[Rfam]
Shown here is a 55-nucleotide RNA from Malikia granosa, a member of the family "nhaA-I RNA". Rfam's curators write: Acidobacteria, Alphaproteobacteria, Betaproteobacteria and Gammaproteobacteria, Verrucomicrobia, cand. division NC10. Pairs were carried over by alignment from the consensus structure, which is taken from published work. It is annotated as a riboswitch.
RNA sequence: GGGUGUCGUCGGCAAGGGGCCGCGGCAGGUUUUUUGCGCUGGUCGGGCCGCCACG
Numbered sequence: 001g002g003g004u005g006u007c008g009u010c011g012g013c014a015a016g017g018g019g020c021c022g023c024g025g026c027a028g029g030u031u032u033u034u035u036g037c038g039c040u041g042g043u044c045g046g047g048c049c050g051c052c053a054c055g
Stems, first nucleotide, its partner, number of pairs: 005026004010022003037055002040053004